[Rfam]
RNA sequence: UAACCGUCUCCGUAAGGAGUCGCUGAACAUGCAGAAGUCAGCAGAAGCCAUAGUACCCAAAUAAAGGACGCUUGAACGGGGAAGGGC
Numbered sequence: 001u002a003a004c005c006g007u008c009u010c011c012g013u014a015a016g017g018a019g020u021c022g023c024u025g026a027a028c029a030u031g032c033a034g035a036a037g038u039c040a041g042c043a044g045a046a047g048c049c050a051u052a053g054u055a056c057c058c059a060a061a062u063a064a065a066g067g068a069c070g071c072u073u074g075a076a077c078g079g080g081g082a083a084g085g086g087c
Stems, first nucleotide, its partner, number of pairs: 001025002005022002008019004038045002047087003056080003
Group II catalytic intron D1-D4-1: an 87-nucleotide RNA from Brevibacillus brevis. Taxonomically the source falls in Brevibacillus brevis (Bacteria, Bacilli, Caryophanales, Paenibacillaceae). From the family's description: Group II introns are found in rRNA, tRNA and mRNA of organelles in fungi, plants and protists, and also in mRNA in bacteria. Rfam links the family to the GO term Group II intron splicing. For this family Rfam cites "The ins and outs of group II introns" (Bonen and Vogel, Trends Genet, 2001).